[Rfam]
RNA sequence: GGGGAUCCUCGGAGCCCUAAACCGGACCAGCAAUGGUCCUCGAGCUAACGGAAGACAGAGA
Numbered sequence: 001g002g003g004g005a006u007c008c009u010c011g012g013a014g015c016c017c018u019a020a021a022c023c024g025g026a027c028c029a030g031c032a033a034u035g036g037u038c039c040u041c042g043a044g045c046u047a048a049c050g051g052a053a054g055a056c057a058g059a060g061a
Base pairs, nucleotide, nucleotide: 001018002017003016004015006014008012024039025038026037027036028035029034
Shown here is a 61-nucleotide sequence from Cereibacter changlensis, a member of the family "L2-Alphaproteobacteria ribosomal protein leader". The family's RNA type in Rfam is cis-regulatory leader. It scores 46 bits against the family's covariance model.